[Rfam]
RNA: mir-9223 microRNA precursor family
RNA sequence: AGUGGUUCUCGGGUGACACACCCCAGAAUCGGGCUCUCUCCUCUCUGGUUCCAGGUGUGACACCCCAGAACAGCA
Numbered sequence: 001a002g003u004g005g006u007u008c009u010c011g012g013g014u015g016a017c018a019c020a021c022c023c024c025a026g027a028a029u030c031g032g033g034c035u036c037u038c039u040c041c042u043c044u045c046u047g048g049u050u051c052c053a054g055g056u057g058u059g060a061c062a063c064c065c066c067a068g069a070a071c072a073g074c075a
Stems, first nucleotide, its partner, number of pairs: 002074002005071005011065005017059001019057004026051008